Shown here is a 61-nucleotide RNA sequence from Pristionchus pacificus, a member of the family "mir-8364 microRNA precursor family".
[Rfam]
RNA sequence: UCUUCAUUCCUUGUACUUUCUCACCGGUCAAAGAGUCGAGAGAGUAUGCGGAAUGAAGAAA
Dot-bracket structure: (((((((..(.((((((.((((...............)))).)))))).)..)))))))..

The base pairs follow the family's consensus structure, which was predicted with RNAalifold.
Rfam 15.1 lists 3,320 matches to the family in 2 species.
The source organism's lineage runs through Eukaryota, Eumetazoa, Rhabditida, Diplogasteromorpha and Pristionchus.